[Rfam]
RNA sequence: CUUCCGAUUGGGCAAAAUCAAAGAGAUUUGGUGAGGCAAAACUCUCUGGUUUGACAGAGCCGGUUGUCAGGACUGCAGGGUCCCAAA
Numbered sequence: 001c002u003u004c005c006g007a008u009u010g011g012g013c014a015a016a017a018u019c020a021a022a023g024a025g026a027u028u029u030g031g032u033g034a035g036g037c038a039a040a041a042c043u044c045u046c047u048g049g050u051u052u053g054a055c056a057g058a059g060c061c062g063g064u065u066g067u068c069a070g071g072a073c074u075g076c077a078g079g080g081u082c083c084c085a086a087a
Base pairs, nucleotide, nucleotide: 012037013036017032018031019030020029021028022027040081042079043078047077048076049073050072051071056067058065059064